RNA sequence: UGCAAUGAUGGUGUAAUUUGCGUCUGACCCCGUGUUCAGUGACAGUUGCCUGUUGUCUUCAUGCUGUCAUGGGUGGCUGAUAGCAGCUAUAGUCUGAGCA
Numbered sequence: 001u002g003c004a005a006u007g008a009u010g011g012u013g014u015a016a017u018u019u020g021c022g023u024c025u026g027a028c029c030c031c032g033u034g035u036u037c038a039g040u041g042a043c044a045g046u047u048g049c050c051u052g053u054u055g056u057c058u059u060c061a062u063g064c065u066g067u068c069a070u071g072g073g074u075g076g077c078u079g080a081u082a083g084c085a086g087c088u089a090u091a092g093u094c095u096g097a098g099c100a
Stems, first nucleotide, its partner, number of pairs: 001100003022081003030072005039064002041057005

The record is a 100-nucleotide sequence from Erpetoichthys calabaricus, which matches "Small nucleolar RNA SNORD16" in Rfam. The base pairs follow the family's consensus structure, which was predicted with PFOLD.